Shown here is a 109-nucleotide RNA sequence from Seonamhaeicola algicola, a member of the family "SAM riboswitch aptamer (S box leader)". The family's consensus secondary structure is taken from published work. The organism belongs to Seonamhaeicola, within Bacteria.
RNA sequence: UUGUUAUCAAGAAAGGUAGAGGGAAUAGACCCAAUGAAACCUUGGCAACCCUUUAACUUGUAAAGAAGGUGCUAAAUUCUACUAAUUCAUAAAAUUAGGAAGAUAACGA
Numbered sequence: 001u002u003g004u005u006a007u008c009a010a011g012a013a014a015g016g017u018a019g020a021g022g023g024a025a026u027a028g029a030c031c032c033a034a035u036g037a038a039a040c041c042u043u044g045g046c047a048a049c050c051c052u053u054u055a056a057c058u059u060g061u062a063a064a065g066a067a068g069g070u071g072c073u074a075a076a077u078u079c080u081a082c083u084a085a086u087u088c089a090u091a092a093a094a095u096u097a098g099g100a101a102g103a104u105a106a107c108g109a
Stems, first nucleotide, its partner, number of pairs: 001109008013043005021032003026081004044073004049069002051065004077101001082098006